[Rfam]
RNA sequence: GGGUGAAUAACAUACUGUUUUCGUAUAAUCUCAAGAAUUGGCUUGAGAGUCUCUACGAGGUCACCGUAAAUGAUCUGUCUACGAAAAGGGAAUUUAUCGAU
Numbered sequence: 001g002g003g004u005g006a007a008u009a010a011c012a013u014a015c016u017g018u019u020u021u022c023g024u025a026u027a028a029u030c031u032c033a034a035g036a037a038u039u040g041g042c043u044u045g046a047g048a049g050u051c052u053c054u055a056c057g058a059g060g061u062c063a064c065c066g067u068a069a070a071u072g073a074u075c076u077g078u079c080u081a082c083g084a085a086a087a088g089g090g091a092a093u094u095u096a097u098c099g100a101u
Base pairs, nucleotide, nucleotide: 018087019086020085021084022083023082024081025080029048030047031046032045033044034043035042058076059075060074061073062072063071
Dot-bracket structure: .................((((((((...(((((((......))))))).........((((((.......))))))...))))))))..............
Purine riboswitch aptamer: a 101-nucleotide RNA from Paenibacillus hemerocallicola.
Clan: Purine riboswitches.
The match comes from Rfam's covariance-model search (75 bits).
Rfam links the family to the GO term purine nucleobase biosynthetic process.